A member of the RNA family "TPP riboswitch aptamer (THI element)" from Psychromicrobium lacuslunae, 91 nucleotides long. Its family is annotated with thiamine pyrophosphate binding in the Gene Ontology.

[Rfam]
RNA sequence: ACACGUGACACGGGGUGCCCCGAAGGCUGAGAACACACCCGUCGAACCUGAUCUAGUUCGUACUAGCGAAGGGAUGUCGCGCACCAUGCGC
Numbered sequence: 001a002c003a004c005g006u007g008a009c010a011c012g013g014g015g016u017g018c019c020c021c022g023a024a025g026g027c028u029g030a031g032a033a034c035a036c037a038c039c040c041g042u043c044g045a046a047c048c049u050g051a052u053c054u055a056g057u058u059c060g061u062a063c064u065a066g067c068g069a070a071g072g073g074a075u076g077u078c079g080c081g082c083a084c085c086a087u088g089c090g091c
Stems, first nucleotide, its partner, number of pairs: 006079005011041004016035001017027003047072003053066004

The base pairs follow the family's consensus structure, which is taken from published work. A search with the family's covariance model found it, with a score of 66 bits.